Source information:
Rfam assigns this 145-nucleotide sequence from Bacillus sp. B1-b2 to the family "c-di-AMP riboswitch aptamer (ydaO/yuaA leader)".

RNA sequence: AACAAUACAUCGCUUAAUCCGUUUGGAGCGGGGGACCCAAAAUUACGUGUGUAUAACACUAGGGGUGAAUCCUUUUUAAAGGUAGGGCAACUCUAAGAUGCCCGAAUCCGACAGCUAACUCCGUAAGCGUUUUUAGAGGGGAAGA
Numbered sequence: 001a002a003c004a005a006u007a008c009a010u011c012g013c014u015u016a017a018u019c020c021g022u023u024u025g026g027a028g029c030g031g032g033g034g035a036c037c038c039a040a041a042a043u044u045a046c047g048u049g050u051g052u053a054u055a056a057c058a059c060u061a062g063g064g065g066u067g068a069a070u071c072c073u074u075u076u077u078a079a080a081g082g083u084a085g086g087g088c089a090a091c092u093c094u095a096a097g098a099u100g101c102c103c104g105a106a107u108c109c110g111a112c113a114g115c116u117a118a119c120u121c122c123g124u125a126a127g128c129g130u131u132u133u134u135a136g137a138g139g140g141g142a143a144g145a
Stems, first nucleotide, its partner, number of pairs: 011129004018027003028124006038062001063109003071082004085103004

NCBI's taxonomy places the organism under Bacteria, Bacillati, Bacillota, Bacilli, Bacillus.